[Rfam]
The record is a 93-nucleotide RNA sequence from Treponema vincentii, which matches "TD-2 RNA" in Rfam. Its Rfam clan is "TD (Treponema denticola) motifs". Lineage of the source: Bacteria > Spirochaetota > Spirochaetia > Treponemataceae > Treponema vincentii. The family's RNA type in Rfam is small RNA. The base pairs follow the family's consensus structure, which is taken from published work. The literature on the family includes a 2007 paper in Nucleic Acids Res by Weinberg et al., "Identification of 22 candidate structured RNAs in bacteria using the CMfinder comparative genomics pipeline".
RNA sequence: ACUGCCAAGGAUGGCAGGGUGAUAAACAGAAACCAGUUUUUGAAAAAAACUGGCAGCCAAGGAAUUGACAUGGAUGUCGAUUCCUUGGCGUAC
Dot-bracket structure: .(((((......)))))...............(((((((((...)))))))))..((((((((((((((......))))))))))))))....